Rfam assigns this 262-nucleotide RNA from Colobus angolensis to the family "bip internal ribosome entry site (IRES)". It scores 282 bits against the family's covariance model. A reference for the family is Kim and Jang (2002), "Continuous heat shock enhances translational initiation directed by internal ribosomal entry site", Biochem Biophys Res Commun. Gene Ontology term of the family: ribosome binding. Lineage of the source: Eukaryota > Sarcopterygii > Simiiformes > Cercopithecoidea > Colobus angolensis.

RNA sequence: CACCGGCCGAGACAGCACAGACAGACCAAUCCAUUGGGGUGUUUCGCGAGUGUGAGAGGUAAGCGCCGUGGCCUGCAUUUCCAGACCUGCCCUUCACCUGGUUCAUGGCGCCUUGUGAACCCUGGCCCCUGCCACCUGCAAGUCGGUAACCACACUGCGCUCCUGUGCUGCGGCCUGUGGCUGGACUGCCUGCGACACCCUGCCUGCUGCUGCCUGACUGGCUGGCAAGAUGAAGCUCUCUCUGGUGGCCACGAUGCUGCUG
Numbered sequence: 001c002a003c004c005g006g007c008c009g010a011g012a013c014a015g016c017a018c019a020g021a022c023a024g025a026c027c028a029a030u031c032c033a034u035u036g037g038g039g040u041g042u043u044u045c046g047c048g049a050g051u052g053u054g055a056g057a058g059g060u061a062a063g064c065g066c067c068g069u070g071g072c073c074u075g076c077a078u079u080u081c082c083a084g085a086c087c088u089g090c091c092c093u094u095c096a097c098c099u100g101g102u103u104c105a106u107g108g109c110g111c112c113u114u115g116u117g118a119a120c121c122c123u124g125g126c127c128c129c130u131g132c133c134a135c136c137u138g139c140a141a142g143u144c145g146g147u148a149a150c151c152a153c154a155c156u157g158c159g160c161u162c163c164u165g166u167g168c169u170g171c172g173g174c175c176u177g178u179g180g181c182u183g184g185a186c187u188g189c190c191u192g193c194g195a196c197a198c199c200c201u202g203c204c205u206g207c208u209g210c211u212g213c214c215u216g217a218c219u220g221g222c223u224g225g226c227a228a229g230a231u232g233a234a235g236c237u238c239u240c241u242c243u244g245g246u247g248g249c250c251a252c253g254a255u256g257c258u259g260c261u262g
Stems, first nucleotide, its partner, number of pairs: 005250005015168006034124001036122003040118001063111009171183005
This family represents the bip internal ribosome entry site (IRES). BiP protein expression has been found to be significantly enhanced by the heat shock response due to IRES-dependent translation.